[Rfam]
This 95-nucleotide RNA from Dioscorea zingiberensis belongs to the Rfam family "Small nucleolar RNA Z43". Rfam links the family to the GO terms nucleolus and RNA processing. Rfam 15.1 lists 859 matches to the family in 240 species.
RNA sequence: GGACGAUGACGAUCUCAAUCAAAAGGUCUCGUUCGUCUUAAUGGCGUUAUCGCCUUGAAGACCAACCUGUAUAUCACCACCCAUAUUCCGAGUCC
Numbered sequence: 001g002g003a004c005g006a007u008g009a010c011g012a013u014c015u016c017a018a019u020c021a022a023a024a025g026g027u028c029u030c031g032u033u034c035g036u037c038u039u040a041a042u043g044g045c046g047u048u049a050u051c052g053c054c055u056u057g058a059a060g061a062c063c064a065a066c067c068u069g070u071a072u073a074u075c076a077c078c079a080c081c082c083a084u085a086u087u088c089c090g091a092g093u094c095c
Base pairs, nucleotide, nucleotide: 001095002094003093004092046056